RNA sequence: CAAACAAACAAGCCGAAACUUCCAAAGAAGUGGAAGUGCGGGGGACUUCUUUUUGUAGAGUUAGCCACUCUGCAUUGGGGUGAAUCACGCUUGUGAAGGGUUGUAUCCUCAGCCCGAACCCGACAACUAACCUCGUAGGCGAAGAAAAGGAGACGA
Numbered sequence: 001c002a003a004a005c006a007a008a009c010a011a012g013c014c015g016a017a018a019c020u021u022c023c024a025a026a027g028a029a030g031u032g033g034a035a036g037u038g039c040g041g042g043g044g045a046c047u048u049c050u051u052u053u054u055g056u057a058g059a060g061u062u063a064g065c066c067a068c069u070c071u072g073c074a075u076u077g078g079g080g081u082g083a084a085u086c087a088c089g090c091u092u093g094u095g096a097a098g099g100g101u102u103g104u105a106u107c108c109u110c111a112g113c114c115c116g117a118a119c120c121c122g123a124c125a126a127c128u129a130a131c132c133u134c135g136u137a138g139g140c141g142a143a144g145a146a147a148a149g150g151a152g153a154c155g156a
Stems, first nucleotide, its partner, number of pairs: 012140003018037007038136006048077001078121003086095003098115004
This 156-nucleotide sequence from Brevibacillus borstelensis belongs to the Rfam family "c-di-AMP riboswitch aptamer (ydaO/yuaA leader)".
It scores 76 bits against the family's covariance model.